[Rfam]
Notes:
Shown here is a 92-nucleotide RNA from Cucumis melo, a member of the family "Small nucleolar RNA U61". Gene Ontology terms of the family: RNA processing and nucleolus. NCBI's taxonomy places the organism under Eukaryota, Euphyllophyta, Gunneridae, rosids, Cucumis.
RNA sequence: AAGCAAUGAUGAAAAUCUUUUUGUGCCAUAGCCGGCCUCUUUCCAGUGGUCGUCGGUGAUGGCUACACAUCCCUCUAAGAAGUUCUGAGCUU
Numbered sequence: 001a002a003g004c005a006a007u008g009a010u011g012a013a014a015a016u017c018u019u020u021u022u023g024u025g026c027c028a029u030a031g032c033c034g035g036c037c038u039c040u041u042u043c044c045a046g047u048g049g050u051c052g053u054c055g056g057u058g059a060u061g062g063c064u065a066c067a068c069a070u071c072c073c074u075c076u077a078a079g080a081a082g083u084u085c086u087g088a089g090c091u092u
Stems, first nucleotide, its partner, number of pairs: 001092004